Overview:
Shown here is a 116-nucleotide sequence from Vanessa tameamea, a member of the family "U5 spliceosomal RNA". Rfam's curators write: U5 RNA is a component of both types of known spliceosome. The precise function of this molecule is unknown, though it is known that the 5' loop is required for splice site selection and p220 binding, and that both the 3' stem-loop and the Sm site are important for Sm protein binding and cap methylation. It scores 93 bits against the family's covariance model. NCBI's taxonomy places the organism under Eukaryota, Metazoa, Allotriocarida, Aparaglossata, Vanessa.
RNA sequence: UAUCUCUGGUUUCCCUUCAAAACGUAUAAAUCUUUCGCCUUUUACUAAAGAUUUCCGUGGAGGGGAACACUCAAAUGAGUCUUAGAUAUUUUUGACAGUCCUACUCCGGUAGGAUU
Numbered sequence: 001u002a003u004c005u006c007u008g009g010u011u012u013c014c015c016u017u018c019a020a021a022a023c024g025u026a027u028a029a030a031u032c033u034u035u036c037g038c039c040u041u042u043u044a045c046u047a048a049a050g051a052u053u054u055c056c057g058u059g060g061a062g063g064g065g066a067a068c069a070c071u072c073a074a075a076u077g078a079g080u081c082u083u084a085g086a087u088a089u090u091u092u093u094g095a096c097a098g099u100c101c102u103a104c105u106c107c108g109g110u111a112g113g114a115u116u
Base pairs, nucleotide, nucleotide: 004079005078006077009068010067011066012065013064014063015062016061017060018059019058028054029053030052031051032050033049034048035047098115099114100113101112102111103110